[Rfam]
RNA: Small Nucleolar RNA SNORD64
Organism: Callorhinus ursinus
RNA sequence: AGGUUUAUGAUGAGUUAUAAUUACAGAGCAUGAAGAAGUGAAGCUCAGUACUCGGAAGUCC
Number, nucleotide and partner (000 for none) at each position: 001a000002g060003g059004u058005u057006u000007a000008u000009g000010a000011u000012g053013a052014g051015u000016u000017a000018u000019a000020a000021u000022u000023a000024c000025a000026g046027a045028g044029c043030a000031u000032g000033a000034a000035g000036a000037a000038g000039u000040g000041a000042a000043g029044c028045u027046c026047a000048g000049u000050a000051c014052u013053c012054g000055g000056a000057a005058g004059u003060c002061c000